[Rfam]
A member of the RNA family "mir-399 microRNA precursor family" from Eucalyptus grandis, 115 nucleotides long. About the family: mir-399 was identified in both Arabidopsis thaliana and Oryza sativa computationally and was later experimentally verified. mir-399 is thought to target mRNAs coding for a phosphatase transporter. The mature sequence is excised from the 3' arm of the hairpin. NCBI's taxonomy places the organism under Eukaryota, Pentapetalae, rosids, malvids, Eucalyptus. For this family Rfam cites "Computational Identification of Plant MicroRNAs and Their Targets, Including a Stress-Induced miRNA" (Jones-Rhoades and Bartel, Mol Cell, 2004).
RNA sequence: UGGUGAAUUACUGGGCAUUUACUCCUUUGGCAGGUGGUUUAUACUCAAAUGUUUUCACUAGGGGUGAAUGUCAUAUAAGCUCAUUGCCAAAGGAGAUUUGCCCGGCAAUUCACCA
Numbered sequence: 001u002g003g004u005g006a007a008u009u010a011c012u013g014g015g016c017a018u019u020u021a022c023u024c025c026u027u028u029g030g031c032a033g034g035u036g037g038u039u040u041a042u043a044c045u046c047a048a049a050u051g052u053u054u055u056c057a058c059u060a061g062g063g064g065u066g067a068a069u070g071u072c073a074u075a076u077a078a079g080c081u082c083a084u085u086g087c088c089a090a091a092g093g094a095g096a097u098u099u100g101c102c103c104g105g106c107a108a109u110u111c112a113c114c115a
Stems, first nucleotide, its partner, number of pairs: 005111005011105007022095004028089006035083002